[Rfam]
RNA sequence: CCAGCCAUAGCUCAGUUGGUAGAGCGGAGGACUGUAGAGUGUAAGCUGAGAUCCUUAGGUCGCUGGUUCGAAUCCGGCUGGCUGGA
Numbered sequence: 001c002c003a004g005c006c007a008u009a010g011c012u013c014a015g016u017u018g019g020u021a022g023a024g025c026g027g028a029g030g031a032c033u034g035u036a037g038a039g040u041g042u043a044a045g046c047u048g049a050g051a052u053c054c055u056u057a058g059g060u061c062g063c064u065g066g067u068u069c070g071a072a073u074c075c076g077g078c079u080g081g082c083u084g085g086a
Stems, first nucleotide, its partner, number of pairs: 001085007010025004027056005062078005
Rfam assigns this 86-nucleotide sequence from Acanthocheilonema viteae to the family "tRNA". A search with the family's covariance model found it, with a score of 61 bits. The family's consensus secondary structure is taken from published work.